[Rfam]
Shown here is a 284-nucleotide RNA sequence from Synechococcus sp. LTW-R, a member of the family "Cyanobacteria transfer-messenger RNA".
It is annotated as a non-coding RNA gene.
The family's consensus secondary structure is taken from published work.
For this family Rfam cites "Phylogenetic analysis of tmRNA secondary structure" (Williams and Bartel, RNA, 1996).
Taxonomically the source falls in Synechococcus (Bacteria, Bacillati, Cyanobacteriota, Synechococcales).
RNA sequence: CCUGCAGAAUGAGGGGGUCCGGUCUUGACCGGACUAGGUGGCUCACACCAGUGUUUCGGACAGCGGUUCGAUUCCGCUCAGCUCCACUCCAAGGGGCUGCAAUGGUUUCGACGGGGCAUGAGGAGGGUGACUGAAGCCUGCUCGGUUAGAGCGAACCCGUAACAGCGAACAACAUCGUUCGUUUCUCCCGUCAGACCGCCCCUGUGGCUGCCUGACCCUAAUUAAGGGAGAUGGGGUCAGAUCAGCCUUAUCAACCAAAUGAUCCAUGGGGGCUGGGAGGCCCC
Numbered sequence: 001c002c003u004g005c006a007g008a009a010u011g012a013g014g015g016g017g018u019c020c021g022g023u024c025u026u027g028a029c030c031g032g033a034c035u036a037g038g039u040g041g042c043u044c045a046c047a048c049c050a051g052u053g054u055u056u057c058g059g060a061c062a063g064c065g066g067u068u069c070g071a072u073u074c075c076g077c078u079c080a081g082c083u084c085c086a087c088u089c090c091a092a093g094g095g096g097c098u099g100c101a102a103u104g105g106u107u108u109c110g111a112c113g114g115g116g117c118a119u120g121a122g123g124a125g126g127g128u129g130a131c132u133g134a135a136g137c138c139u140g141c142u143c144g145g146u147u148a149g150a151g152c153g154a155a156c157c158c159g160u161a162a163c164a165g166c167g168a169a170c171a172a173c174a175u176c177g178u179u180c181g182u183u184u185c186u187c188c189c190g191u192c193a194g195a196c197c198g199c200c201c202c203u204g205u206g207g208c209u210g211c212c213u214g215a216c217c218c219u220a221a222u223u224a225a226g227g228g229a230g231a232u233g234g235g236g237u238c239a240g241a242u243c244a245g246c247c248u249u250a251u252c253a254a255c256c257a258a259a260u261g262a263u264c265c266a267u268g269g270g271g272g273c274u275g276g277g278a279g280g281c282c283c284c
Base pairs, nucleotide, nucleotide: 017034018033019032020031021030022029023028037132038131039130041128042127043126044125048123049122051119052118053117054116055115056114057113058112062078063077064076065075066074079099080098081097082096083095084094085093139153140152141151142150143149194213198208199207200206227256228255230252231251232250233249234248235247236246237245269284270283271282272281273280274279